[Rfam]
RNA sequence: AAGGUGGCAUCCUAACGAUGGGAGCUACACUUACGACUUUUUCGUGUUUGGCAGCAAUAAUAUCAAAUUCUGCUUCGAGCCUUUGGGACGGAGACAGAGAA
Dot-bracket structure: ((((((((.(((((....)))))))))).))).....................................((((((((..((....)).))))).)))....

This 101-nucleotide RNA from Thermoflavimicrobium daqui belongs to the Rfam family "pan motif". NCBI's taxonomy places the organism under Bacteria, Bacilli, Caryophanales, Thermoactinomycetaceae, Thermoflavimicrobium. It is annotated as a cis-regulatory element.